[Rfam]
RNA sequence: CCAGGGGGCCGGGCAGCCGCGUCAUCGCAUUUUGCGAUGCCGAGGAAAGUCCGGGCUCCACGAAACAAGGGUGGCGGGUAACGCCCGCCGGGGGCAACCCCAGGGAAAGUGCCACAGAGAACAGACCGCUAACCGGAGCAAUCCGGCAGCAAGGGUGAAACGGUGCGGCAAAAGCGCACCGCGCGCGCCGGUAACGGCCGCGGCACGGCAAACCCCACCCGGAGCAAGACCGAAUAGGGGCAUCGCGCCGGAUUUCCGGCAGGCGCGUUUCACGCCAAGGAUCGCAAGAUCCUGCGCUGCCCGGGUUGGUUGCUGGAGCGCACGCAGCAAUGCGUCGCCGAGAGGAAUGGCUGCCCGUGCCGAUACGGUCCGUGUUCAAGCGGAUACCGUCGGUGCGACAGAACCCGGCUUACAGGCCCCCUGGCAUC
Number, nucleotide and partner (000 for none) at each position: 001c424002c423003a422004g421005g420006g419007g418008g417009c416010c415011g413012g355013g354014c353015a352016g351017c350018c349019g000020c042021g041022u000023c039024a038025u037026c036027g035028c034029a000030u000031u000032u000033u000034g028035c027036g026037a025038u024039g023040c000041c021042g020043a000044g000045g000046a000047a411048a410049g409050u000051c408052c407053g406054g405055g404056c224057u223058c222059c221060a000061c000062g000063a000064a000065a000066c000067a000068a000069g220070g219071g218072u217073g216074g088075c087076g086077g085078g084079u000080a000081a000082c000083g000084c078085c077086c076087g075088c074089c103090g101091g100092g099093g098094g000095c000096a000097a000098c093099c092100c091101c090102a000103g089104g215105g214106a000107a000108a000109g213110u212111g209112c208113c207114a000115c000116a000117g000118a000119g000120a000121a000122c000123a000124g000125a000126c154127c153128g150129c149130u148131a000132a000133c146134c145135g144136g143137a142138g000139c000140a000141a000142u137143c136144c135145g134146g133147c000148a130149g129150c128151a000152a000153g127154g126155g000156u000157g000158a000159a000160a000161c000162g180163g179164u178165g177166c176167g175168g000169c000170a000171a000172a000173a000174g000175c167176g166177c165178a164179c163180c162181g204182c202183g201184c200185g199186c000187g198188c197189c196190g195191g000192u000193a000194a000195c190196g189197g188198c187199c185200g184201c183202g182203g000204c181205a000206c000207g113208g112209c111210a000211a000212a110213c109214c105215c104216c073217a072218c071219c070220c069221g059222g058223a057224g056225c000226a000227a000228g311229a310230c309231c308232g000233a000234a000235u000236a000237g000238g302239g301240g300241c299242a298243u000244c000245g000246c000247g000248c000249c000250g000251g000252a000253u000254u000255u000256c000257c000258g000259g000260c000261a000262g000263g000264c000265g000266c000267g000268u000269u000270u000271c000272a000273c000274g000275c000276c000277a000278a293279g292280g291281a290282u289283c000284g000285c000286a000287a000288g000289a282290u281291c280292c279293u278294g000295c000296g000297c000298u242299g241300c240301c239302c238303g000304g000305g000306u000307u000308g231309g230310u229311u228312g000313c000314u000315g000316g000317a000318g338319c337320g336321c000322a335323c334324g333325c332326a331327g000328c000329a000330a000331u326332g325333c324334g323335u322336c320337g319338c318339c000340g000341a000342g000343a000344g000345g000346a000347a000348u000349g018350g017351c016352u015353g014354c013355c012356c000357g000358u000359g000360c000361c000362g000363a000364u000365a000366c000367g000368g000369u000370c000371c000372g000373u000374g000375u000376u000377c000378a000379a000380g000381c000382g000383g000384a000385u000386a000387c000388c000389g000390u000391c000392g000393g000394u000395g000396c000397g000398a000399c000400a000401g000402a000403a000404c055405c054406c053407g052408g051409c049410u048411u047412a000413c011414a000415g010416g009417c008418c007419c006420c005421c004422u003423g002424g001425c000426a000427u000428c000
RNA: Bacterial RNase P class A
Organism: Novosphingobium nitrogenifigens